A member of the RNA family "Plastid-psbA-3 3UTR RNA" from Eucalyptus grandis, 59 nucleotides long. From the family's description: Plastid psbA-3 is a non-coding RNA (ncRNA) present in plastids. It was identified in inverted repeat sequences in the 3 prime untranslate region (3UTR) of photosystem II quinone-binding protein (psbA). NCBI's taxonomy places the organism under Eukaryota, Tracheophyta, Myrtaceae, Eucalypteae, Eucalyptus.

RNA sequence: AAAGGAACAAUAACCGAUUUCUUUUUCUAUCAAGAGUGUUGGUUAUUGCUUCUUUCCAA
Numbered sequence: 001a002a003a004g005g006a007a008c009a010a011u012a013a014c015c016g017a018u019u020u021c022u023u024u025u026u027c028u029a030u031c032a033a034g035a036g037u038g039u040u041g042g043u044u045a046u047u048g049c050u051u052c053u054u055u056c057c058a059a
Stems, first nucleotide, its partner, number of pairs: 001055006008048007019036005